A member of the RNA family "mir-90 microRNA precursor family" from Caenorhabditis elegans, 85 nucleotides long.
RNA sequence: CAUUUCGAGCGGCUUUCAACGACGAUAUCAACCGACAACUCACACUUUUGCGUGUUGAUAUGUUGUUUGAAUGCCCCUUGAAUUG
Numbered sequence: 001c002a003u004u005u006c007g008a009g010c011g012g013c014u015u016u017c018a019a020c021g022a023c024g025a026u027a028u029c030a031a032c033c034g035a036c037a038a039c040u041c042a043c044a045c046u047u048u049u050g051c052g053u054g055u056u057g058a059u060a061u062g063u064u065g066u067u068u069g070a071a072u073g074c075c076c077c078u079u080g081a082a083u084u085g
Stems, first nucleotide, its partner, number of pairs: 004082006011075003015071003018067006025061008033052002
Dot-bracket structure: ...((((((.(((.(((((((((.((((((((((................)).)))))))))))))).))).))).))))))...
Rfam 15.1 lists 10 matches to the family in 8 species. Taxonomically the source falls in Caenorhabditis (Eukaryota, Rhabditida, Rhabditomorpha, Peloderinae).